mir-449 microRNA precursor family: a 79-nucleotide sequence from Monodelphis domestica. Its Rfam clan is "mir-34 clan". On this family, see Linsen et al., BMC Genomics 2010: "Small RNA expression and strain specificity in the rat". The base pairs follow the family's consensus structure, which was predicted with RNAalifold.

[Rfam]
RNA sequence: UGUGAUGGGAUGGCAGUGUAUUGUUAGCUGGUUGACUAUCUGAACGUGCCAGCUAACAUGCAACUGCUAUCCCAUUGCA
Numbered sequence: 001u002g003u004g005a006u007g008g009g010a011u012g013g014c015a016g017u018g019u020a021u022u023g024u025u026a027g028c029u030g031g032u033u034g035a036c037u038a039u040c041u042g043a044a045c046g047u048g049c050c051a052g053c054u055a056a057c058a059u060g061c062a063a064c065u066g067c068u069a070u071c072c073c074a075u076u077g078c079a
Stems, first nucleotide, its partner, number of pairs: 001079009011069007018061003023057010037046001039044001
The source organism's lineage runs through Eukaryota, Metazoa, Tetrapoda, Theria and Monodelphis.